Source information
mir-27 microRNA precursor family: a 77-nucleotide sequence from Synaphobranchus kaupii.

RNA sequence: GGCAGGUGCAGGGCUUCGCUGAUUGGUGAACAGUGGCUGCUUUUCUCUGUUCACAGUGGCUAAGUUCUGCACUUGAA
Numbered sequence: 001g002g003c004a005g006g007u008g009c010a011g012g013g014c015u016u017c018g019c020u021g022a023u024u025g026g027u028g029a030a031c032a033g034u035g036g037c038u039g040c041u042u043u044u045c046u047c048u049g050u051u052c053a054c055a056g057u058g059g060c061u062a063a064g065u066u067c068u069g070c071a072c073u074u075g076a077a
Stems, first nucleotide, its partner, number of pairs: 011067006018060003026054007
Dot-bracket structure: ..........((((((.(((.....(((((((...............)))))))...))).))))))..........
A reference for the family is Chen et al. (2005), "The developmental miRNA profiles of zebrafish as determined by small RNA cloning", Genes Dev. Gene Ontology terms of the family: miRNA-mediated post-transcriptional gene silencing and RISC complex. Taxonomically the source falls in Synaphobranchus (Eukaryota, Opisthokonta, Eumetazoa, Euteleostomi).